[Rfam]
RNA: U11 spliceosomal RNA
Organism: Calcarius ornatus
RNA sequence: AAAAAGGGCUUCUGCCGUGUGUGGCACGGGGGGGGACGCGCGCCCCCUCCGCGGAAUCGACAUCAAGAGAUUUCGGAAGCAUAAUUUUUGUGAGAGAGGGCUGCCGCUAACCGCCUGUUCCGGCACCCCG
Number, nucleotide and partner (000 for none) at each position: 001a000002a000003a000004a000005a000006g000007g000008g080009c079010u078011u077012c076013u026014g025015c024016c023017g022018u000019g000020u000021g000022u017023g016024g015025c014026a013027c051028g050029g049030g048031g047032g046033g045034g044035g043036a000037c042038g000039c000040g000041c000042g037043c035044c034045c033046c032047c031048u030049c029050c028051g027052c075053g074054g073055a072056a071057u070058c069059g000060a000061c000062a000063u000064c000065a000066a000067g000068a000069g058070a057071u056072u055073u054074c053075g052076g012077a011078a010079g009080c008081a000082u000083a000084a000085u000086u000087u000088u000089u000090g000091u000092g000093a000094g000095a000096g000097a000098g128099g127100g126101c000102u000103g124104c123105c122106g121107c000108u000109a119110a118111c117112c000113g000114c000115c000116u000117g111118u110119u109120c000121c106122g105123g104124c103125a000126c100127c099128c098129c000130g000